RNA sequence: UGUCAAGAGUCUUAGGCGUCGAUUCGGCGAGCAGAGUUCUUUUGCCCAAUGAGAGGGUGAAGGAAAGA
Numbered sequence: 001u002g003u004c005a006a007g008a009g010u011c012u013u014a015g016g017c018g019u020c021g022a023u024u025c026g027g028c029g030a031g032c033a034g035a036g037u038u039c040u041u042u043u044g045c046c047c048a049a050u051g052a053g054a055g056g057g058u059g060a061a062g063g064a065a066a067g068a
Base pairs, nucleotide, nucleotide: 010064011063012062013061017059018058019057020056023054024053026050029047031045032044033043034042035041
Background
Rfam assigns this 68-nucleotide RNA from Mesorhizobium hungaricum to the family "S-element". For this family Rfam cites "Two discrete elements are required for the replication of a repABC plasmid: an antisense RNA and a stem-loop structure" (Venkova-Canova et al., Mol Microbiol, 2004). Rfam classes the family as a cis-regulatory element. Rfam 15.1 lists 231 matches to the family in 124 species. About the family: This family represents a group of S-elements from p42d and related plasmids. The S-element has multiple functions and is believed to act as a negative regulator of repC transcription, be required for efficient replication and act as a translational enhancer of repC.